[Rfam]
This 29-nucleotide sequence from Sus scrofa belongs to the Rfam family "Iron response element I". For this family Rfam cites "An atypical iron-responsive element (IRE) within crayfish ferritin mRNA and an iron regulatory protein 1 (IRP1)-like protein from crayfish hepatopancreas" (Huang et al., Insect Biochem Mol Biol, 1999). The base pairs follow the family's consensus structure, which is taken from published work. The family has 62 seed sequences and 6,829 matches in Rfam 15.1. Its family is annotated with response to iron ion in the Gene Ontology. The match comes from Rfam's covariance-model search (36 bits). NCBI's taxonomy places the organism under Eukaryota, Deuterostomia, Boreoeutheria, Artiodactyla, Sus.

RNA sequence: UCUCUUGCUUCAACAGUGUUUGGAUGGAA
Numbered sequence: 001u002c003u004c005u006u007g008c009u010u011c012a013a014c015a016g017u018g019u020u021u022g023g024a025u026g027g028a029a
Stems, first nucleotide, its partner, number of pairs: 001029001003028003007025001009024005014018001